Shown here is a 121-nucleotide sequence from Paenibacillus sp. Y412MC10, a member of the family "epsC RNA".
RNA sequence: AGGUAAUGCCUACUGAACCUCUACCACCGUAGGCACUCGAUUAUGCUGUGGGCAUCCGUCAAACAGGAUGGCUUAGACGUUCAUCGUCGAUGGCGUAAAGUGAGGAAGGGUUAGAUGCCCU
Numbered sequence: 001a002g003g004u005a006a007u008g009c010c011u012a013c014u015g016a017a018c019c020u021c022u023a024c025c026a027c028c029g030u031a032g033g034c035a036c037u038c039g040a041u042u043a044u045g046c047u048g049u050g051g052g053c054a055u056c057c058g059u060c061a062a063a064c065a066g067g068a069u070g071g072c073u074u075a076g077a078c079g080u081u082c083a084u085c086g087u088c089g090a091u092g093g094c095g096u097a098a099a100g101u102g103a104g105g106a107a108g109g110g111u112u113a114g115a116u117g118c119c120c121u
Stems, first nucleotide, its partner, number of pairs: 001020004007035007036104004041098007050073002053070005076088004107121005
Dot-bracket structure: [[[[..(((((((...]]]]........)))))))((((.(((((((..((.(((((........))))).))..((((.....))))...)))))))..))))..(((((.....)))))
The family's RNA type in Rfam is cis-regulatory element. The organism belongs to Paenibacillus, within Bacteria.